[Rfam]
RNA sequence: AGGGUGCGAGAGCGUCAAUA
Numbered sequence: 001a002g003g004g005u006g007c008g009a010g011a012g013c014g015u016c017a018a019u020a
Stems, first nucleotide, its partner, number of pairs: 003016005
This 20-nucleotide RNA sequence from Prolemur simus belongs to the Rfam family "HIV-1 stem-loop 4 packaging signal". On this family, see Yu et al., Proc Natl Acad Sci U S A 2008: "MS3D structural elucidation of the HIV-1 packaging signal". Pairs were carried over by alignment from the consensus structure, which is taken from published work.